This 164-nucleotide RNA from Atopobacter sp. AH10 belongs to the Rfam family "M-box riboswitch aptamer (ykoK leader)".
[Rfam]
RNA sequence: GAAUAACCUUGUUAGGUGAGGCUACUGAAUUAGAGACAAGCCACUGCCCAGAAAUGUCCAAAGACGCCAAUGGGUCAGCAGAAUUUCUCGAAUUAAGGGAUGUUCUAAUGUGGCUGGUUCUGCCUAUGCUAAUCAGAGCUAAAAUCGAUACGAUGAGGUGCAGA
Numbered sequence: 001g002a003a004u005a006a007c008c009u010u011g012u013u014a015g016g017u018g019a020g021g022c023u024a025c026u027g028a029a030u031u032a033g034a035g036a037c038a039a040g041c042c043a044c045u046g047c048c049c050a051g052a053a054a055u056g057u058c059c060a061a062a063g064a065c066g067c068c069a070a071u072g073g074g075u076c077a078g079c080a081g082a083a084u085u086u087c088u089c090g091a092a093u094u095a096a097g098g099g100a101u102g103u104u105c106u107a108a109u110g111u112g113g114c115u116g117g118u119u120c121u122g123c124c125u126a127u128g129c130u131a132a133u134c135a136g137a138g139c140u141a142a143a144a145u146c147g148a149u150a151c152g153a154u155g156a157g158g159u160g161c162a163g164a
Stems, first nucleotide, its partner, number of pairs: 006159005011151002013096001015146003020140003025136004030132004040114005046075005055066004081105004087099003116124003
It scores 130 bits against the family's covariance model.